Streptomyces-metK RNA: a 118-nucleotide sequence from Streptomyces sp. SDr-06. Lineage of the source: Bacteria > Bacillati > Actinomycetes > Kitasatosporales > Streptomyces.
RNA sequence: UCGAGACACGUGGUCCAUCGAACAGAACCGACCGAUAAACUGGUCUCGGAACGCAGCCGGGCGCAGCUCCCGGCGCGACCUACCAUGAUCAGCCAGCAGCCGCUGCAACCCCAGGGAG
Dot-bracket structure: ................................................(..(((..(((((.......))))).)))..).............((((....)))).............